[Rfam]
RNA: Bacillaceae-1 RNA
RNA sequence: UAAGAAGGAACAGCAACUAAGAGCGCUACGUCCUGUAGCAACGUCGCUGUACUCUCGUCGUGAGAG
Numbered sequence: 001u002a003a004g005a006a007g008g009a010a011c012a013g014c015a016a017c018u019a020a021g022a023g024c025g026c027u028a029c030g031u032c033c034u035g036u037a038g039c040a041a042c043g044u045c046g047c048u049g050u051a052c053u054c055u056c057g058u059c060g061u062g063a064g065a066g
Stems, first nucleotide, its partner, number of pairs: 011049004016044002025039005052066005